[Rfam]
About this RNA
Bacterial large signal recognition particle RNA: a 262-nucleotide RNA from Lachnotalea glycerini. A reference for the family is Rosenblad et al. (2003), "SRPDB: Signal Recognition Particle Database", Nucleic Acids Res. By type it is a non-coding RNA gene. A search with the family's covariance model found it, with a score of 196 bits.
RNA sequence: CCACGCAGCUGGGGAGUUAGCGGUGCCCUGUACCUGCAAUCCGCUACAGCAGGAGUGAUGCUUUGCCUAGGGUAUUCUAUUGUAGAGCAGCCCUAUAUAAGUGAUGUUGACGCUUGGGUCUUACGCAACAAAAAUCUAUGAACCGUGUCAGGUCAGGAAUGAAGCAGCACUAAGUAGAACCUUUUGUGUGCCGUAAGGCUGCCUGAGCCGAGUUAACUGUAUAGGUAACGUCUAUGGUAGAUAUUCAAAGUGAGGCGCGUGG
Numbered sequence: 001c002c003a004c005g006c007a008g009c010u011g012g013g014g015a016g017u018u019a020g021c022g023g024u025g026c027c028c029u030g031u032a033c034c035u036g037c038a039a040u041c042c043g044c045u046a047c048a049g050c051a052g053g054a055g056u057g058a059u060g061c062u063u064u065g066c067c068u069a070g071g072g073u074a075u076u077c078u079a080u081u082g083u084a085g086a087g088c089a090g091c092c093c094u095a096u097a098u099a100a101g102u103g104a105u106g107u108u109g110a111c112g113c114u115u116g117g118g119u120c121u122u123a124c125g126c127a128a129c130a131a132a133a134a135u136c137u138a139u140g141a142a143c144c145g146u147g148u149c150a151g152g153u154c155a156g157g158a159a160u161g162a163a164g165c166a167g168c169a170c171u172a173a174g175u176a177g178a179a180c181c182u183u184u185u186g187u188g189u190g191c192c193g194u195a196a197g198g199c200u201g202c203c204u205g206a207g208c209c210g211a212g213u214u215a216a217c218u219g220u221a222u223a224g225g226u227a228a229c230g231u232c233u234a235u236g237g238u239a240g241a242u243a244u245u246c247a248a249a250g251u252g253a254g255g256c257g258c259g260u261g262g
Stems, first nucleotide, its partner, number of pairs: 001262006008056003011029004016024003033053005062254005068248001070246006077240010093224006101217002103214003112208008120197006126188002129186005135178005145170004153162003